[Rfam]
RNA sequence: GCCACAUGAUGUUGAAUAGAUGACAUUAGCACACUGUGCCAAGAUGACUUCUACCUAUCACCCUUGACUGAUGGCU
Numbered sequence: 001g002c003c004a005c006a007u008g009a010u011g012u013u014g015a016a017u018a019g020a021u022g023a024c025a026u027u028a029g030c031a032c033a034c035u036g037u038g039c040c041a042a043g044a045u046g047a048c049u050u051c052u053a054c055c056u057a058u059c060a061c062c063c064u065u066g067a068c069u070g071a072u073g074g075c076u
Stems, first nucleotide, its partner, number of pairs: 001075004029039004

Annotation
Shown here is a 76-nucleotide RNA sequence from Scyliorhinus torazame, a member of the family "Small nucleolar RNA SNORD83". Rfam links the family to the GO terms nucleolus and RNA processing. On this family, see Jady and Kiss, Nucleic Acids Res 2000: "Characterisation of the U83 and U84 small nucleolar RNAs: two novel 2'-O-ribose methylation guide RNAs that lack complementarities to ribosomal RNAs". It is annotated as a C/D-box small nucleolar RNA. Lineage of the source: Eukaryota > Eumetazoa > Galeomorphii > Carcharhiniformes > Scyliorhinus.